[Rfam]
RNA sequence: ACAUGGGAGAGGAGGUGGUCCGACGUUGAUGAACGACAGGACUCGUGAGGUGUCCGUCAGCUAGCCGACGUCAGGUCGUGGAUUGACCGGCUCCACCCCUCCGGGGCGGACACGUCAGCUGGUGAAUUCCCGACGGACACCGGACCCCCGGAGCGCUCGGAGUUGUCCAUCCGAGCCCCUCGAACGCCGUUCGAGGGAAGCAUGCUCCGGGGGUUUUCCCAU
Numbered sequence: 001a002c003a004u005g006g007g008a009g010a011g012g013a014g015g016u017g018g019u020c021c022g023a024c025g026u027u028g029a030u031g032a033a034c035g036a037c038a039g040g041a042c043u044c045g046u047g048a049g050g051u052g053u054c055c056g057u058c059a060g061c062u063a064g065c066c067g068a069c070g071u072c073a074g075g076u077c078g079u080g081g082a083u084u085g086a087c088c089g090g091c092u093c094c095a096c097c098c099c100u101c102c103g104g105g106g107c108g109g110a111c112a113c114g115u116c117a118g119c120u121g122g123u124g125a126a127u128u129c130c131c132g133a134c135g136g137a138c139a140c141c142g143g144a145c146c147c148c149c150g151g152a153g154c155g156c157u158c159g160g161a162g163u164u165g166u167c168c169a170u171c172c173g174a175g176c177c178c179c180u181c182g183a184a185c186g187c188c189g190u191u192c193g194a195g196g197g198a199a200g201c202a203u204g205c206u207c208c209g210g211g212g213g214u215u216u217u218c219c220c221a222u
Stems, first nucleotide, its partner, number of pairs: 014058005060123006067116004142216013156175006
Description: The family of this 222-nucleotide RNA from Actinomycetospora corticicola is "Actinobacteria sRNA Ms_IGR-5". The pairing is the family consensus, mapped onto this sequence.